RNA sequence: GGGGUGCGAAGUCUGGCAACCUCCUCGUGGUGCACCCUGGGCAACGUGGCCGCUCGAAGUAUCUUUAAACCGCCGCGGCUAAUGUCAGA
Numbered sequence: 001g002g003g004g005u006g007c008g009a010a011g012u013c014u015g016g017c018a019a020c021c022u023c024c025u026c027g028u029g030g031u032g033c034a035c036c037c038u039g040g041g042c043a044a045c046g047u048g049g050c051c052g053c054u055c056g057a058a059g060u061a062u063c064u065u066u067a068a069a070c071c072g073c074c075g076c077g078g079c080u081a082a083u084g085u086c087a088g089a
Stems, first nucleotide, its partner, number of pairs: 001038007019031003045077005
The family of this 89-nucleotide RNA from Diatraea saccharalis is "HDV ribozyme from F. prausnitzii". For this family Rfam cites "Widespread occurrence of self-cleaving ribozymes" (Webb et al., Science, 2009). Rfam 15.1 lists 3,803 matches to the family in 91 species. The match comes from Rfam's covariance-model search (46 bits).